[Rfam]
RNA sequence: GUCAUCUCAACGGGGUGCUUCCCCGGUGUCGUCAGCGAAAGUUGGCGAAAUCGAGCGAAGCUGAGAGGCGCAGGGCCGACCCGUCGAACCUGAUCCGGUUAGGACCGGCGUAGGAAAUUGAGAUGCCAGCGCAG
Number, nucleotide and partner (000 for none) at each position: 001g000002u000003c000004a000005u000006c122007u121008c120009a119010a118011c083012g082013g081014g080015g000016u000017g061018c060019u059020u058021c057022c000023c000024c000025g000026g000027u000028g000029u000030c000031g000032u000033c000034a000035g000036c000037g000038a000039a000040a000041g000042u000043u000044g000045g000046c000047g000048a000049a000050a000051u000052c000053g000054a000055g000056c000057g021058a020059a019060g018061c017062u000063g000064a000065g000066a000067g000068g076069c075070g000071c000072a000073g000074g000075g069076c068077c000078g000079a000080c014081c013082c012083g011084u000085c000086g000087a000088a000089c114090c113091u112092g111093a000094u000095c108096c107097g106098g105099u000100u000101a000102g000103g000104a000105c098106c097107g096108g095109c000110g000111u092112a091113g090114g089115a000116a000117a000118u010119u009120g008121a007122g006123a000124u000125g000126c000127c000128a000129g000130c000131g000132c000133a000134g000
RNA: TPP riboswitch aptamer (THI element)
Organism: Hwanghaeella grinnelliae